[Rfam]
RNA sequence: UUUAUAUGCCAUUGCGAUAUUAGGAAACCGAACCAGGUCAGGACCGGAAGGUAGCAGCCUUAAGGAUUUCUAAUAUGUGCGAUGGUUUUUUGUUUUCUU
Numbered sequence: 001u002u003u004a005u006a007u008g009c010c011a012u013u014g015c016g017a018u019a020u021u022a023g024g025a026a027a028c029c030g031a032a033c034c035a036g037g038u039c040a041g042g043a044c045c046g047g048a049a050g051g052u053a054g055c056a057g058c059c060u061u062a063a064g065g066a067u068u069u070c071u072a073a074u075a076u077g078u079g080c081g082a083u084g085g086u087u088u089u090u091u092g093u094u095u096u097c098u099u
Stems, first nucleotide, its partner, number of pairs: 004093003008089001009085006015077001017076006024069003028065002035060004043052003

Rfam assigns this 99-nucleotide RNA to the family "Bacterial small signal recognition particle RNA". The signal recognition particle (SRP) is a universally conserved ribonucleoprotein involved in the co-translational targeting of proteins to membranes. The family is grouped with related families in Rfam's "SRP clan". Gene Ontology terms of the family: signal recognition particle, plasma membrane targeting and SRP-dependent cotranslational protein targeting to membrane, signal sequence recognition.